Annotation
The family of this 168-nucleotide sequence from Polarella glacialis is "ACEA small nucleolar RNA U3". Its Rfam clan is "U3 clan". Small nucleolar RNAs (snoRNAs) are involved in the processing and modification of rRNA in the nucleolus. There are two main classes of snoRNAs: the box C/D class, and the box H/ACA class. U3 snoRNA is a member of the box C/D class. Indeed, the box C/D element is a subset of the six short sequence elements found in all U3 snoRNAs, namely boxes A, A', B, C, C', and D. The U3 snoRNA secondary structure is characterised by a small 5' domain (with boxes A and A'), and a larger 3' domain (with boxes B, C, C', and D), the two domains being linked by a single-stranded hinge. Boxes B and C form the B/C motif, which appears to be exclusive to U3 snoRNAs, and boxes C' and D form the C'/D motif. The latter is functionally similar to the C/D motifs found in other snoRNAs. The 5' domain and the hinge region act as a pre-rRNA-binding domain. The 3' domain has conserved protein-binding sites. Both the box B/C and box C'/D motifs are sufficient for nuclear retention of U3 snoRNA. The box C'/D motif is also necessary for nucleolar localisation, stability and hyper-methylation of U3 snoRNA. Both box B/C and C'/D motifs are involved in specific protein interactions and are necessary for the rRNA processing functions of U3 snoRNA. It scores 69 bits against the family's covariance model. The organism belongs to Polarella, within Eukaryota. Gene Ontology terms of the family: nucleolus and RNA processing. The family's consensus secondary structure is taken from published work.
RNA sequence: UCGACUGUACUUGCACAGGAUCACUGCUACAGUGAUUCCUUUUGCAUACAUGUCAUAAAACAGAGCUUUAUAGCAUCUCUGAUGAUGUCGAUCUCUGCACUGAUAAGGAAUUUGAUGGAGCUUGCUCCCAGCUUGAUGAAAUCUAUCAGUGCAGACUUCCGAAGAGAU
Numbered sequence: 001u002c003g004a005c006u007g008u009a010c011u012u013g014c015a016c017a018g019g020a021u022c023a024c025u026g027c028u029a030c031a032g033u034g035a036u037u038c039c040u041u042u043u044g045c046a047u048a049c050a051u052g053u054c055a056u057a058a059a060a061c062a063g064a065g066c067u068u069u070a071u072a073g074c075a076u077c078u079c080u081g082a083u084g085a086u087g088u089c090g091a092u093c094u095c096u097g098c099a100c101u102g103a104u105a106a107g108g109a110a111u112u113u114g115a116u117g118g119a120g121c122u123u124g125c126u127c128c129c130a131g132c133u134u135g136a137u138g139a140a141a142u143c144u145a146u147c148a149g150u151g152c153a154g155a156c157u158u159c160c161g162a163a164g165a166g167a168u
Stems, first nucleotide, its partner, number of pairs: 003039001006035001008034004017028002020025001046071003050067001053064002076167005094155005100149006112141002120132003
It is annotated as a C/D-box small nucleolar RNA.